[Rfam]
RNA sequence: CAAGGUUGAGGCUAAAGCAGAAACAUUCAGUGUGGUAUGUCAGAUUCUGAAGAAUCUGUGAAUUCUGCU
Numbered sequence: 001c002a003a004g005g006u007u008g009a010g011g012c013u014a015a016a017g018c019a020g021a022a023a024c025a026u027u028c029a030g031u032g033u034g035g036u037a038u039g040u041c042a043g044a045u046u047c048u049g050a051a052g053a054a055u056c057u058g059u060g061a062a063u064u065c066u067g068c069u
Stems, first nucleotide, its partner, number of pairs: 011036003016069007023033003041058007
RNA: Mammalian CPEB3 ribozyme
Organism: Crocodylus porosus